Rfam assigns this 569-nucleotide RNA to the family "ROOL RNA".
Firmicutes, Fusobacteria (1 example), Tenericutes (1 example).
Pairs were carried over by alignment from the consensus structure, which is taken from published work.
It is one of the family's seed sequences.

RNA sequence: GAUUUUGAACAAUCUACUAAAUAACCAAGUGAAGAUGGGGUGACACCUUGCUUGGAUUGCAUACAUAAUUCCCGUUACGCUUUUUGUGAGAUAUUGCAAAAAGAUAAGUAAUUCUCUUUUGAGUAAUCAUAAGAGAUCAUGAAGUGUAAGAAGAUUGAGGGCGUAUACAGUAUAGAGGUUGUGCGUAAUUAGAUCAUUAUCAGACGGUGGCAGUGAUAAUAGACGCUUCCAGUGGAAGAAUAAUCUAGCGAGGCCUUAUGUAGCAGUAAGAACCAAACUAGAAAAGCUAUAAUAAACUGUUUUGCACUUGAGGUUGAGACAUCAGCCAAUAACACUAAAGAUAGGUACAAGUAGCCCAAAUUGUGCAGAUAAAACAUUGGAUAUGUUUAUGCUUAAAAUAUAUUUCUGAAUGUCGGGUGAAAGUUGGACGUAACCAGUCGUGCCUAGUCAUUUAAUCGCUACGGAAGUUAUAGGGUCGCUCCUUAUGGCUCAGACCGUGGUAGGCUAUCGGUCAAUAAGUUGCGUACAAUCGAAGUAGAGCGAAGGCUCAUUUAAUAGAUUGUUUAAAG
Numbered sequence: 001g002a003u004u005u006u007g008a009a010c011a012a013u014c015u016a017c018u019a020a021a022u023a024a025c026c027a028a029g030u031g032a033a034g035a036u037g038g039g040g041u042g043a044c045a046c047c048u049u050g051c052u053u054g055g056a057u058u059g060c061a062u063a064c065a066u067a068a069u070u071c072c073c074g075u076u077a078c079g080c081u082u083u084u085u086g087u088g089a090g091a092u093a094u095u096g097c098a099a100a101a102a103g104a105u106a107a108g109u110a111a112u113u114c115u116c117u118u119u120u121g122a123g124u125a126a127u128c129a130u131a132a133g134a135g136a137u138c139a140u141g142a143a144g145u146g147u148a149a150g151a152a153g154a155u156u157g158a159g160g161g162c163g164u165a166u167a168c169a170g171u172a173u174a175g176a177g178g179u180u181g182u183g184c185g186u187a188a189u190u191a192g193a194u195c196a197u198u199a200u201c202a203g204a205c206g207g208u209g210g211c212a213g214u215g216a217u218a219a220u221a222g223a224c225g226c227u228u229c230c231a232g233u234g235g236a237a238g239a240a241u242a243a244u245c246u247a248g249c250g251a252g253g254c255c256u257u258a259u260g261u262a263g264c265a266g267u268a269a270g271a272a273c274c275a276a277a278c279u280a281g282a283a284a285a286g287c288u289a290u291a292a293u294a295a296a297c298u299g300u301u302u303u304g305c306a307c308u309u310g311a312g313g314u315u316g317a318g319a320c321a322u323c324a325g326c327c328a329a330u331a332a333c334a335c336u337a338a339a340g341a342u343a344g345g346u347a348c349a350a351g352u353a354g355c356c357c358a359a360a361u362u363g364u365g366c367a368g369a370u371a372a373a374a375c376a377u378u379g380g381a382u383a384u385g386u387u388u389a390u391g392c393u394u395a396a397a398a399u400a401u402a403u404u405u406c407u408g409a410a411u412g413u414c415g416g417g418u419g420a421a422a423g424u425u426g427g428a429c430g431u432a433a434c435c436a437g438u439c440g441u442g443c444c445u446a447g448u449c450a451u452u453u454a455a456u457c458g459c460u461a462c463g464g465a466a467g468u469u470a471u472a473g474g475g476u477c478g479c480u481c482c483u484u485a486u487g488g489c490u491c492a493g494a495c496c497g498u499g500g501u502a503g504g505c506u507a508u509c510g511g512u513c514a515a516u517a518a519g520u521u522g523c524g525u526a527c528a529a530u531c532g533a534a535g536u537a538g539a540g541c542g543a544a545g546g547c548u549c550a551u552u553u554a555a556u557a558g559a560u561u562g563u564u565u566a567a568a569g
Stems, first nucleotide, its partner, number of pairs: 008565002012561001015558001018555001020553002025055005036050005057170003061166002075111004081102009113136006120129003138146003178531001180529001188521001190519001195511001197344004206336004210300005226238004244282005252274002255270003261289004303367005313326005348423001354418004359413001405494004427443001445507003457504001460500001464496001467490001469487007538549004
Dot-bracket structure: .......((..(..(..(.((...(((((......(((((.....)))))))))).(((.((............((((..(((((((((....))))))))).....)))).((((((.(((....))).)))))).(((...)))..................)).))).......(.(.......(.(....(.((((.....(((((((((...........((((.....)))).....(((((...((.(((...[[[[...)))..))...)))))...]]]]......)))))..[[[[[.....(((((....)))))......))))....))))...(.....((((.(...]]]]].....................................[[[[....).))))....)...(...............).(((.........(..(...(..(.(((((((.....)))))))..)]]]].)...)...))))...).......).).......).)......((((....))))..)).)..)..)..))....